RNA sequence: UCUAAAACUCGAGAUAUGGGCUGAACAUUAAAUAGUGUUUGGGCUGCAGGACAGAUUCUGACUUCUCUGUUGUUGCUAUAAUUUGAACUUGAAAACGAUCCUUUUGAAUCUUAGACUCUUCUGGAAAGUUUUAUGCCUAUGUCUUAGCUUUCUAUC
Dot-bracket structure: ..((.((((.((((((((((.((((.(((.......(...(((.(..((((..((....(..(....(...(((...........)))...)....).)....))...))))..).))).).....)))))))..))))))))))))..)).))..
RNA: MIR2912 microRNA precursor family